Rfam assigns this 75-nucleotide sequence from Austrofundulus limnaeus to the family "Small nucleolar RNA SNORD2".
The base pairs follow the family's consensus structure, which was predicted with WAR.
The family has 17 seed sequences and 1,116 matches in Rfam 15.1.
Gene Ontology terms of the family: nucleolus and RNA processing.
The family's RNA type in Rfam is C/D-box small nucleolar RNA.
[Rfam]
RNA sequence: GAGUGAAAUGAUGUUUACCAUCUUUCGGGACUUACCCAAAAAUGAUGAUAUUUUUUACUCUAUCCCUGAUCACUC
Number, nucleotide and partner (000 for none) at each position: 001g075002a074003g073004u072005g071006a070007a000008a000009u000010g000011a000012u000013g000014u000015u000016u000017a000018c000019c000020a000021u000022c000023u000024u000025u000026c000027g000028g000029g000030a000031c000032u000033u000034a000035c000036c000037c000038a000039a000040a000041a000042a000043u000044g000045a000046u000047g000048a000049u000050a000051u000052u000053u000054u000055u000056u000057a000058c000059u000060c000061u000062a000063u000064c000065c000066c000067u000068g000069a000070u006071c005072a004073c003074u002075c001